A member of the RNA family "Bacterial small signal recognition particle RNA" from Sutterella megalosphaeroides, 99 nucleotides long. Taxonomically the source falls in Sutterella (Bacteria, Pseudomonadota, Burkholderiales, Sutterellaceae). Clan: SRP clan. By type it is a non-coding RNA gene. Rfam's curators write: The signal recognition particle (SRP) is a universally conserved ribonucleoprotein involved in the co-translational targeting of proteins to membranes. The base pairs follow the family's consensus structure, which is taken from published work.

[Rfam]
Nucleotides: 099
Base pairs, nucleotide, nucleotide: 004093005092006091007090008089010084011083012082013081014080015076017075018074019073020072021071022070023067025065026064027063028062034059035058036057037056042051043050044049
Number, partner (000 for none) and nucleotide at each position: 001000g002000g003000c004093g005092g006091g007090u008089c009000c010084c011083c012082u013081c014080g015076c016000a017075u018074g019073u020072g021071c022070u023067c024000c025065u026064c027063g028062g029000g030000a031000a032000u033000c034059u035058g036057g037056u038000c039000a040000g041000g042051u043050u044049g045000g046000g047000a048000a049044c050043a051042a052000a053000g054000c055000a056037g057036c058035c059034a060000u061000a062028c063027c064026g065025a066000u067023g068000u069000g070022a071021g072020u073019g074018c075017a076015g077000u078000g079000c080014c081013g082012a083011g084010g085000a086000u087000a088000a089008g090007g091006c092005u093004c094000g095000c096000c097000a098000u099000u